[Rfam]
U7 small nuclear RNA: a 62-nucleotide sequence from Jaculus jaculus. NCBI's taxonomy places the organism under Eukaryota, Deuterostomia, Teleostomi, Sarcopterygii, Jaculus. Pairs were carried over by alignment from the consensus structure, which was predicted with PFOLD.
RNA sequence: GAGUGUUACAGCUCUUUUAGAGUUUGUCUAGCGGGUUUUCCGACUUCAGUUGGAAAACCCUA
Number, nucleotide and partner (000 for none) at each position: 001g000002a000003g000004u000005g000006u000007u000008a000009c000010a000011g000012c000013u000014c000015u000016u000017u000018u000019a000020g000021a000022g000023u000024u000025u000026g000027u000028c000029u000030a000031g000032c000033g000034g059035g058036u057037u056038u055039u054040c053041c052042g051043a050044c049045u000046u000047c000048a000049g044050u043051u042052g041053g040054a039055a038056a037057a036058c035059c034060c000061u000062a000